[Rfam]
RNA sequence: CAACAAACUAGCUUGACGAAGCGAAAAGCACUUCCGCUGUGCCUGUUUGUUGUUUUUAUUGAUUAAGCGGA
Numbered sequence: 001c002a003a004c005a006a007a008c009u010a011g012c013u014u015g016a017c018g019a020a021g022c023g024a025a026a027a028g029c030a031c032u033u034c035c036g037c038u039g040u041g042c043c044u045g046u047u048u049g050u051u052g053u054u055u056u057u058a059u060u061g062a063u064u065a066a067g068c069g070g071a
Stems, first nucleotide, its partner, number of pairs: 001052008011022004028042004033071006
Rfam assigns this 71-nucleotide sequence to the family "int-alpA RNA". Acidobacteria (1 example), Planctomycetes (1 example), Proteobacteria. The family's RNA type in Rfam is small RNA.